[Rfam]
RNA sequence: GAAGGAGGCGUCCAAAGGGAUCGCAUUGAUCCUAUUUCAUUUGUAUUUUCACAUAAUAAAUUAAUAGUGAAUUAUGAUCAUGCUAUGCCUUUGGACUCAUCCUU
Numbered sequence: 001g002a003a004g005g006a007g008g009c010g011u012c013c014a015a016a017g018g019g020a021u022c023g024c025a026u027u028g029a030u031c032c033u034a035u036u037u038c039a040u041u042u043g044u045a046u047u048u049u050c051a052c053a054u055a056a057u058a059a060a061u062u063a064a065u066a067g068u069g070a071a072u073u074a075u076g077a078u079c080a081u082g083c084u085a086u087g088c089c090u091u092u093g094g095a096c097u098c099a100u101c102c103u104u
Stems, first nucleotide, its partner, number of pairs: 002104005008098001010096009020086002023083004028079004
The record is a 104-nucleotide sequence from Anisodus acutangulus, which matches "mir-393 microRNA precursor family" in Rfam. The family has 27 seed sequences and 1,052 matches in Rfam 15.1. On this family, see Kruszka et al., J Plant Physiol 2012: "Role of microRNAs and other sRNAs of plants in their changing environments". It scores 81 bits against the family's covariance model.